The family of this 150-nucleotide RNA sequence from Pseudomonas jinjuensis is "FMN riboswitch aptamer (RFN element)". The base pairs follow the family's consensus structure, which is taken from published work. The source organism's lineage runs through Bacteria, Gammaproteobacteria, Pseudomonadales, Pseudomonadaceae and Pseudomonas.
RNA sequence: CGACGUUCUCAGGGCGGGGUGCAAUUCCCCACCGGCGGUAAUGGCGCGCAAGGUGCCUAGCCCGCGAGCGCUUGCCGGCAGCGGCAAGGUCAGCAGACCCGGUGCGAUUCCGGGGCCGACGGUCACAGUCCGGAUAAAGAGAGAACGGGA
Numbered sequence: 001c002g003a004c005g006u007u008c009u010c011a012g013g014g015c016g017g018g019g020u021g022c023a024a025u026u027c028c029c030c031a032c033c034g035g036c037g038g039u040a041a042u043g044g045c046g047c048g049c050a051a052g053g054u055g056c057c058u059a060g061c062c063c064g065c066g067a068g069c070g071c072u073u074g075c076c077g078g079c080a081g082c083g084g085c086a087a088g089g090u091c092a093g094c095a096g097a098c099c100c101g102g103u104g105c106g107a108u109u110c111c112g113g114g115g116c117c118g119a120c121g122g123u124c125a126c127a128g129u130c131c132g133g134a135u136a137a138a139g140a141g142a143g144a145a146c147g148g149g150a
Stems, first nucleotide, its partner, number of pairs: 004147007017029003031129002033118002035065004060116002068094002098114005120132003